[Rfam]
RNA sequence: UAUUGAUGAUGAGAUUUUCACGACGGUCUUCCGAUGAUAAAUAAUACCUGUGGAUAACAUACGUGAAGCUGAAAUA
Numbered sequence: 001u002a003u004u005g006a007u008g009a010u011g012a013g014a015u016u017u018u019c020a021c022g023a024c025g026g027u028c029u030u031c032c033g034a035u036g037a038u039a040a041a042u043a044a045u046a047c048c049u050g051u052g053g054a055u056a057a058c059a060u061a062c063g064u065g066a067a068g069c070u071g072a073a074a075u076a
Base pairs, nucleotide, nucleotide: 001076002075003074004073
This 76-nucleotide RNA from Caenorhabditis angaria belongs to the Rfam family "Small nucleolar RNA sn3071". A reference for the family is Deng et al. (2006), "Organization of the Caenorhabditis elegans small non-coding transcriptome: genomic features, biogenesis, and expression", Genome Res. Gene Ontology terms of the family: RNA processing and nucleolus. By type it is a C/D-box small nucleolar RNA. The base pairs follow the family's consensus structure, which was predicted with WAR. NCBI's taxonomy places the organism under Eukaryota, Opisthokonta, Bilateria, Rhabditoidea, Caenorhabditis.